[Rfam]
RNA: Bacterial RNase P class A
RNA sequence: GCGGAUGGCUGGAUGACCGCGGGUGACUGUGGGGGCGUGCUCCUGCGUGACGCGAGGAAAGUCCGGACUCCACAAGGCAAUGGUGCCGGGUAAUGCCCGGCCGGGGAAACCCGAGGGAAAGCGCCACAGAGAACAGACGGCCUGCGCCUGUCGCGGGUCACGGUGAAACGGUGGGGUAAGAGCCCACCGCGCGCUUGGCAACAAGGGCGGCACGGCAAGCCCCACCAGGAGCAAUGCCAAAUAGGGACCGCACGGGGCUUGCCCCAAAGCCGCCUUGGCUUUUGCAGGUCCGGGUUGGCAGCUUGAGGUGUCUGGUAACAGGCAUCCUAGAGGAAUGGUCAUCCACGGUGGCAACACCUGGACAGAAUCCGGCUUACAGGCCGUCCGCGCAA
Numbered sequence: 001g002c003g004g005a006u007g008g009c010u011g012g013a014u015g016a017c018c019g020c021g022g023g024u025g026a027c028u029g030u031g032g033g034g035g036c037g038u039g040c041u042c043c044u045g046c047g048u049g050a051c052g053c054g055a056g057g058a059a060a061g062u063c064c065g066g067a068c069u070c071c072a073c074a075a076g077g078c079a080a081u082g083g084u085g086c087c088g089g090g091u092a093a094u095g096c097c098c099g100g101c102c103g104g105g106g107a108a109a110c111c112c113g114a115g116g117g118a119a120a121g122c123g124c125c126a127c128a129g130a131g132a133a134c135a136g137a138c139g140g141c142c143u144g145c146g147c148c149u150g151u152c153g154c155g156g157g158u159c160a161c162g163g164u165g166a167a168a169c170g171g172u173g174g175g176g177u178a179a180g181a182g183c184c185c186a187c188c189g190c191g192c193g194c195u196u197g198g199c200a201a202c203a204a205g206g207g208c209g210g211c212a213c214g215g216c217a218a219g220c221c222c223c224a225c226c227a228g229g230a231g232c233a234a235u236g237c238c239a240a241a242u243a244g245g246g247a248c249c250g251c252a253c254g255g256g257g258c259u260u261g262c263c264c265c266a267a268a269g270c271c272g273c274c275u276u277g278g279c280u281u282u283u284g285c286a287g288g289u290c291c292g293g294g295u296u297g298g299c300a301g302c303u304u305g306a307g308g309u310g311u312c313u314g315g316u317a318a319c320a321g322g323c324a325u326c327c328u329a330g331a332g333g334a335a336u337g338g339u340c341a342u343c344c345a346c347g348g349u350g351g352c353a354a355c356a357c358c359u360g361g362a363c364a365g366a367a368u369c370c371g372g373c374u375u376a377c378a379g380g381c382c383g384u385c386c387g388c389g390c391a392a
Base pairs, nucleotide, nucleotide: 001388002387003386004385005384006383007382008381009380010379011377012343013342014341015340016339017338018337020054021053023051024050026048027047059375060374061373063372064371065370066369067368068231069230070229071228076276077275081227082226083225084224085223086100087099088098089097090096101115102113103112104111105110116222117221121220122219123216124215125214138162139161140158141157142156143155144154145153146152170188171187172186173185174184175183189211190209191208192207194205195204196203197202235300236299237298238297245291246290247289248288249287267281268280269279270278271277307326308325309324310323311322312321313320314319